[Rfam]
RNA sequence: AAGUGAUUAUCUGGCAAUAUCUGUGAAUAGCUUCGGUCUAAGCUAUUCACAGAUAUUGCCAGAUAAUCACUUU
Numbered sequence: 001a002a003g004u005g006a007u008u009a010u011c012u013g014g015c016a017a018u019a020u021c022u023g024u025g026a027a028u029a030g031c032u033u034c035g036g037u038c039u040a041a042g043c044u045a046u047u048c049a050c051a052g053a054u055a056u057u058g059c060c061a062g063a064u065a066a067u068c069a070c071u072u073u
Stems, first nucleotide, its partner, number of pairs: 005068017023050011
RNA: mir-31 microRNA precursor family